[Rfam]
Description
The record is a 123-nucleotide RNA sequence from Sodalis-like symbiont of Bactericera trigonica, which matches "Enterobacteria greA leader" in Rfam. Rfam classes the family as a cis-regulatory leader. The family's consensus secondary structure is taken from published work. The literature on the family includes a 2010 paper in Genome Biol by Naville and Gautheret, "Premature terminator analysis sheds light on a hidden world of bacterial transcriptional attenuation". Taxonomically the source falls in Sodalis (Bacteria, Pseudomonadati, Gammaproteobacteria, Bruguierivoracaceae). It scores 88 bits against the family's covariance model.

RNA sequence: GCCAUACUACGGUGCAAACAGGGAUAAGUAAACGAUGACCCACACCCAACUCUGCGGUAAAAUACGUAUCACAAUGCAAAACUGAGGCUGGCCUGUGAAGCGAUUCCAGGGCCGCCUGCCUUU
Numbered sequence: 001g002c003c004a005u006a007c008u009a010c011g012g013u014g015c016a017a018a019c020a021g022g023g024a025u026a027a028g029u030a031a032a033c034g035a036u037g038a039c040c041c042a043c044a045c046c047c048a049a050c051u052c053u054g055c056g057g058u059a060a061a062a063u064a065c066g067u068a069u070c071a072c073a074a075u076g077c078a079a080a081a082c083u084g085a086g087g088c089u090g091g092c093c094u095g096u097g098a099a100g101c102g103a104u105u106c107c108a109g110g111g112c113c114g115c116c117u118g119c120c121u122u123u
Base pairs, nucleotide, nucleotide: 001039003037004036005035010034011033014029015028056070057069058068059067087116089114090113091112092111093110094109097106